[Rfam]
RNA sequence: ACGCCGUGAGGUCGUGUGAGAUGGAAGCUUGUAGCGAAUCGCAGCACCGAAUGAGAGUGAACCUUCGUGCAGGCUGUUUGACCUGGGUUAGCAAGCGUGGACGAGCGACGCCCGAUAUCCGAUCGUGGUCAUUCAGUAGUGAAGGCGGGAGCGGCGAGACAUUUCUCAAUC
Numbered sequence: 001a002c003g004c005c006g007u008g009a010g011g012u013c014g015u016g017u018g019a020g021a022u023g024g025a026a027g028c029u030u031g032u033a034g035c036g037a038a039u040c041g042c043a044g045c046a047c048c049g050a051a052u053g054a055g056a057g058u059g060a061a062c063c064u065u066c067g068u069g070c071a072g073g074c075u076g077u078u079u080g081a082c083c084u085g086g087g088u089u090a091g092c093a094a095g096c097g098u099g100g101a102c103g104a105g106c107g108a109c110g111c112c113c114g115a116u117a118u119c120c121g122a123u124c125g126u127g128g129u130c131a132u133u134c135a136g137u138a139g140u141g142a143a144g145g146c147g148g149g150a151g152c153g154g155c156g157a158g159a160c161a162u163u164u165c166u167c168a169a170u171c
Stems, first nucleotide, its partner, number of pairs: 003012003027171001029169003034163001039157004044152001047148003062145006073137003079131005085113004091106002
Description
Rfam assigns this 171-nucleotide RNA sequence from Novipirellula herctigrandis to the family "Group II catalytic intron D1-D4-3". Taxonomically the source falls in Novipirellula (Bacteria, Pseudomonadati, Planctomycetota, Pirellulaceae). A search with the family's covariance model found it, with a score of 59 bits.